RNA sequence: UUAGCUACUUUAGAAUAGGUUUGUAUUCAUAAUUAUGGAUGCAAACAUCAAACGACUUGUUUGUAUCUAUGAUGGCUAGAGAACUUUGUACUACGUAAAGCCACGUAGACAUAACGCUAAGUGGCUAAGCGAAAAAGUACAAAGUAACUAUAUUUUCUUACUUUUAUUCUCUUUCGAUAACUAAU
Number, nucleotide and partner (000 for none) at each position: 001u079002u078003a077004g076005c075006u074007a073008c000009u000010u000011u069012a068013g067014a066015a000016u065017a064018g000019g046020u045021u044022u043023g042024u041025a040026u039027u038028c037029a036030u035031a000032a000033u000034u000035a030036u029037g028038g027039a026040u025041g024042c023043a022044a021045a020046c019047a000048u000049c063050a062051a061052a060053c059054g000055a000056c000057u000058u000059g053060u052061u051062u050063g049064u017065a016066u014067c013068u012069a011070u000071g000072a000073u007074g006075g005076c004077u003078a002079g001080a000081g000082a000083a145084c144085u143086u142087u141088g140089u139090a138091c137092u136093a000094c000095g000096u132097a000098a000099a126100g125101c124102c123103a122104c121105g000106u119107a118108g117109a000110c000111a000112u000113a000114a000115c000116g000117c108118u107119a106120a000121g104122u103123g102124g101125c100126u099127a000128a000129g000130c000131g000132a096133a000134a000135a000136a092137g091138u090139a089140c088141a087142a086143a085144g084145u083146a159147a158148c000149u000150a000151u000152a000153u000154u000155u000156u000157c000158u147159u146160a000161c000162u000163u000164u000165u000166a000167u000168u000169c000170u000171c000172u000173u000174u000175c000176g000177a000178u000179a000180a000181c000182u000183a000184a000185u000
RNA: Enterococcus sRNA 2410